Rfam assigns this 91-nucleotide sequence from Halopseudomonas xinjiangensis to the family "Selenocysteine transfer RNA".
RNA sequence: GGAAGGGCAUCGUCCCCGGUGGGGCGCCCGGACUUCAAACCCGGUGAGAUGCGCCAGGCGCGUCUGGUAGGUUCGACUCCUAUUCCCUUCC
Numbered sequence: 001g002g003a004a005g006g007g008c009a010u011c012g013u014c015c016c017c018g019g020u021g022g023g024g025c026g027c028c029c030g031g032a033c034u035u036c037a038a039a040c041c042c043g044g045u046g047a048g049a050u051g052c053g054c055c056a057g058g059c060g061c062g063u064c065u066g067g068u069a070g071g072u073u074c075g076a077c078u079c080c081u082a083u084u085c086c087c088u089u090c091c
Base pairs, nucleotide, nucleotide: 001091002090003089004088005087006086007085009083011026012025013024014023015022016021028044029043030042031041047065048064049063050062051061068082069081070080071079
Annotation
The family's consensus secondary structure is taken from published work.